Notes: Shown here is a 91-nucleotide RNA sequence from Trichogramma brassicae, a member of the family "mir-317 microRNA precursor family". Rfam links the family to the GO terms miRNA-mediated post-transcriptional gene silencing and RISC complex. The organism belongs to Trichogramma, within Eukaryota. The family's consensus secondary structure was predicted with RNAalifold. The literature on the family includes a 2007 paper in Genome Res by Stark et al., "Systematic discovery and characterization of fly microRNAs using 12 Drosophila genomes". A search with the family's covariance model found it, with a score of 71 bits.
RNA sequence: GCACUUGGAGAACAGGGAGCCACUCUGUGUUCACUCGGCAGGUAAAGAAGCGGGUGAACACAGCUGGUGGUAUCUCAGUUUUCUGAGGGCG
Numbered sequence: 001g002c003a004c005u006u007g008g009a010g011a012a013c014a015g016g017g018a019g020c021c022a023c024u025c026u027g028u029g030u031u032c033a034c035u036c037g038g039c040a041g042g043u044a045a046a047g048a049a050g051c052g053g054g055u056g057a058a059c060a061c062a063g064c065u066g067g068u069g070g071u072a073u074c075u076c077a078g079u080u081u082u083c084u085g086a087g088g089g090c091g
Stems, first nucleotide, its partner, number of pairs: 008082004015076001016074002019071002022068003025063003029059001031057002